[Rfam]
Annotation:
The record is a 140-nucleotide sequence from Oscillospiraceae bacterium Marseille-Q3528, which matches "FMN riboswitch aptamer (RFN element)" in Rfam. Rfam links the family to the GO term FMN binding. The source organism's lineage runs through Bacteria, Bacillota, Clostridia, Eubacteriales and Oscillospiraceae. It scores 108 bits against the family's covariance model. The family's consensus secondary structure is taken from published work.

RNA sequence: UAAAUUCUUCAGGGCAGGGUGAGAUUCCCUACCGGCGGUAAAGCCCGCGAGCGGUCUGCGACAGCAGAUGCAGCAGAUUCGGUGACUGUGCGAACAGAACUCCGAAGCCGACAGUAAAGUCUGGAUGAAAGAAGAGUGAA
Dot-bracket structure: ...(((((((......(((.......))).[[((((((....[[))))..((....................))...(((((...................)))))]])).(((....]]))).......)))))))...
Numbered sequence: 001u002a003a004a005u006u007c008u009u010c011a012g013g014g015c016a017g018g019g020u021g022a023g024a025u026u027c028c029c030u031a032c033c034g035g036c037g038g039u040a041a042a043g044c045c046c047g048c049g050a051g052c053g054g055u056c057u058g059c060g061a062c063a064g065c066a067g068a069u070g071c072a073g074c075a076g077a078u079u080c081g082g083u084g085a086c087u088g089u090g091c092g093a094a095c096a097g098a099a100c101u102c103c104g105a106a107g108c109c110g111a112c113a114g115u116a117a118a119g120u121c122u123g124g125a126u127g128a129a130a131g132a133a134g135a136g137u138g139a140a
Stems, first nucleotide, its partner, number of pairs: 004137007017029003031120002033110002035048004043108002051074002078106005112123003